[Rfam]
RNA sequence: CAUGCCUAUUGUACUUCAUCAGGUGCUCUGGUAUCCUCAACUCCCGACACCUGUUGGAGUACACUAAUUAUG
Numbered sequence: 001c002a003u004g005c006c007u008a009u010u011g012u013a014c015u016u017c018a019u020c021a022g023g024u025g026c027u028c029u030g031g032u033a034u035c036c037u038c039a040a041c042u043c044c045c046g047a048c049a050c051c052u053g054u055u056g057g058a059g060u061a062c063a064c065u066a067a068u069u070a071u072g
Base pairs, nucleotide, nucleotide: 001072002071003070004069010063011062012061014059015058016057017056018055020053021052023050024049025048027046030044031043